RNA sequence: GAUAGCCGAAAAUCGUGAAGGGGUCGAGAGUGGGUGAGGUUACUAAACGCACGUCUUGGAUCGUGGCAUCGUAAAGUCCGCCCCAAAACAUAGCUUUCGCAACUAACAAGAGCGCUCCUGCCCCUAAAAAUAAGAGGUGAUGCCCUAAAAUUAAGCCCAAUUUCGCCGGAUCGUUCCA
Numbered sequence: 001g002a003u004a005g006c007c008g009a010a011a012a013u014c015g016u017g018a019a020g021g022g023g024u025c026g027a028g029a030g031u032g033g034g035u036g037a038g039g040u041u042a043c044u045a046a047a048c049g050c051a052c053g054u055c056u057u058g059g060a061u062c063g064u065g066g067c068a069u070c071g072u073a074a075a076g077u078c079c080g081c082c083c084c085a086a087a088a089c090a091u092a093g094c095u096u097u098c099g100c101a102a103c104u105a106a107c108a109a110g111a112g113c114g115c116u117c118c119u120g121c122c123c124c125u126a127a128a129a130a131u132a133a134g135a136g137g138u139g140a141u142g143c144c145c146u147a148a149a150a151u152u153a154a155g156c157c158c159a160a161u162u163u164c165g166c167c168g169g170a171u172c173g174u175u176c177c178a
Stems, first nucleotide, its partner, number of pairs: 136175006144169002